Background: This 102-nucleotide RNA from Clostridium chromiireducens belongs to the Rfam family "Purine riboswitch aptamer".
RNA sequence: UAUAAAAAAUGAAAUUUUACCCGUAUAUGCUUAGAAAUAAGGUCUAAGCGUCUCUACCGGACUACCGUAAAUUGUCUGACUAUGGGUGUUUAUAGAUGCUUG
Numbered sequence: 001u002a003u004a005a006a007a008a009a010u011g012a013a014a015u016u017u018u019a020c021c022c023g024u025a026u027a028u029g030c031u032u033a034g035a036a037a038u039a040a041g042g043u044c045u046a047a048g049c050g051u052c053u054c055u056a057c058c059g060g061a062c063u064a065c066c067g068u069a070a071a072u073u074g075u076c077u078g079a080c081u082a083u084g085g086g087u088g089u090u091u092a093u094a095g096a097u098g099c100u101u102g
Stems, first nucleotide, its partner, number of pairs: 018088008029049007058078005064072001